The record is an 83-nucleotide RNA from Zingiber officinale, which matches "small nucleolar RNA snoR114" in Rfam. It scores 61 bits against the family's covariance model. The family's consensus secondary structure was predicted with RNAalifold.

RNA sequence: UGGUGAUGAGGAUUAAUGCGCUUCAGUGAUGUCAGGGUUCAUCACAACCAUCUGAUUAAGAUGACAAAAGUGCUUCUGAGCCA
Dot-bracket structure: ((((...........................................................................))))